[Rfam]
RNA sequence: ACUGGAGGACAAACCAGAACUGAGUCUGAAGAGUGAGACUCGGGUGACAGUAGCCUCCUAAAAGGAAAGUGAUGGAGAGAGCAGCACUGCUUCCAGCAAAGCAGAGGGCUGACUGUGCCAUCCGACACCU
Numbered sequence: 001a002c003u004g005g006a007g008g009a010c011a012a013a014c015c016a017g018a019a020c021u022g023a024g025u026c027u028g029a030a031g032a033g034u035g036a037g038a039c040u041c042g043g044g045u046g047a048c049a050g051u052a053g054c055c056u057c058c059u060a061a062a063a064g065g066a067a068a069g070u071g072a073u074g075g076a077g078a079g080a081g082c083a084g085c086a087c088u089g090c091u092u093c094c095a096g097c098a099a100a101g102c103a104g105a106g107g108g109c110u111g112a113c114u115g116u117g118c119c120a121u122c123c124g125a126c127a128c129c130u
Stems, first nucleotide, its partner, number of pairs: 003060001004058005018045001020043001022041006069123001071121001080114002082111004087106002092103001094101001